[Rfam]
RNA: Purine riboswitch aptamer
Organism: Paenibacillus baekrokdamisoli
RNA sequence: CGUACAAACUGCAUAUCUUUUCGUAUAAUCUCAGGAAUCGGCUUGAGAGUCUCUACGAGAUCACCUUAAUGAUCUGUCUACGAAGAGCGAGAUGAGUAAC
Numbered sequence: 001c002g003u004a005c006a007a008a009c010u011g012c013a014u015a016u017c018u019u020u021u022c023g024u025a026u027a028a029u030c031u032c033a034g035g036a037a038u039c040g041g042c043u044u045g046a047g048a049g050u051c052u053c054u055a056c057g058a059g060a061u062c063a064c065c066u067u068a069a070u071g072a073u074c075u076g077u078c079u080a081c082g083a084a085g086a087g088c089g090a091g092a093u094g095a096g097u098a099a100c
Stems, first nucleotide, its partner, number of pairs: 018086008029048007058075006